[Rfam]
RNA: Streptococcus sRNA SpF66
Organism: Ruminococcaceae bacterium KH2T8
RNA sequence: GCAAUGCUGCUAUCUCCUACACGGCAGUGGAAAGGAGGUAUGUCGUUGUGAAAGAACUACUCUCUUUCUUUUCUUCUAUCGUGGCUGGCAUAAUCGCUAAUGCUGUCAGCAAAAGGCUGGAAAGAAGAAGAUAAGCAGUCAGCCUGAGGAUUGAUCCACCUCGCAAAAACGGAAAAGAAAAACCCGGAGGUCGCACCCUCCGGGUUUUUUGUCGUUAUGGU
Dot-bracket structure: ......(((((..(........)..)))))....((((...((.(((......)).).)).................(((.(.(.((((((........)))))).).).....((((((....(......)......))))))....))).......))))..(.(.((...((...((((((((((((......))))))))))))))...))).)...